[Rfam]
RNA sequence: UAAGUUCUGGGAUAUGCGUUGUGUAUCAUUAAUUGAACCUACACUUCUUGCACGGGAUUCCGCGUUCGCUGCUAGGCGAUAUACUCGAUUAUCGGGUUUCCGAUAUAUCCGGGAAUUACUGAAUAGCGACAGGAAGUACCCACCUUAUCUUUCGAUAGGGCGUCAAUUAAGAGCAUGACGGUAUUUCGGAUCUUUG
Numbered sequence: 001u002a003a004g005u006u007c008u009g010g011g012a013u014a015u016g017c018g019u020u021g022u023g024u025a026u027c028a029u030u031a032a033u034u035g036a037a038c039c040u041a042c043a044c045u046u047c048u049u050g051c052a053c054g055g056g057a058u059u060c061c062g063c064g065u066u067c068g069c070u071g072c073u074a075g076g077c078g079a080u081a082u083a084c085u086c087g088a089u090u091a092u093c094g095g096g097u098u099u100c101c102g103a104u105a106u107a108u109c110c111g112g113g114a115a116u117u118a119c120u121g122a123a124u125a126g127c128g129a130c131a132g133g134a135a136g137u138a139c140c141c142a143c144c145u146u147a148u149c150u151u152u153c154g155a156u157a158g159g160g161c162g163u164c165a166a167u168u169a170a171g172a173g174c175a176u177g178a179c180g181g182u183a184u185u186u187c188g189g190a191u192c193u194u195u196g
Stems, first nucleotide, its partner, number of pairs: 002194003006190010017180003029170004034165003038160002054141003059136001063132001065131001068130001070128005084113004
Dot-bracket structure: .(((.((((((((((.(((.........((((.(((.((..............(((..(...(.(..(.(((((.........((((......................))))..........))))).)))...)..))).................))..))).)))).......))))))))))))).)))..

Source information:
The record is a 196-nucleotide RNA sequence from Mogibacterium sp. CM50, which matches "6S / SsrS RNA" in Rfam. A search with the family's covariance model found it, with a score of 50 bits. Rfam classes the family as a non-coding RNA gene.